RNA sequence: CUUCGCUGGGGAGUAGCCGGCUUUCCGCAAUCGGAAAGCGCCCAUGUCAACACACUCGAUCGUCCGAUCGUGGCAUGGGCAGCCGUCGCAGUUGUUGACGCGGGUUGGCAAGACCAUCGACAGAGUGCGCUUGAAGGUCGGGGGCGCGGUCUGUCGCAUCUUCUUGCCCGACCGAAACGC
Numbered sequence: 001c002u003u004c005g006c007u008g009g010g011g012a013g014u015a016g017c018c019g020g021c022u023u024u025c026c027g028c029a030a031u032c033g034g035a036a037a038g039c040g041c042c043c044a045u046g047u048c049a050a051c052a053c054a055c056u057c058g059a060u061c062g063u064c065c066g067a068u069c070g071u072g073g074c075a076u077g078g079g080c081a082g083c084c085g086u087c088g089c090a091g092u093u094g095u096u097g098a099c100g101c102g103g104g105u106u107g108g109c110a111a112g113a114c115c116a117u118c119g120a121c122a123g124a125g126u127g128c129g130c131u132u133g134a135a136g137g138u139c140g141g142g143g144g145c146g147c148g149g150u151c152u153g154u155c156g157c158a159u160c161u162u163c164u165u166g167c168c169c170g171a172c173c174g175a176a177a178c179g180c
Base pairs, nucleotide, nucleotide: 021038022037023036040080041079042078043077044076045075046074047073048072049071057070058069059068060067061066084179085178086177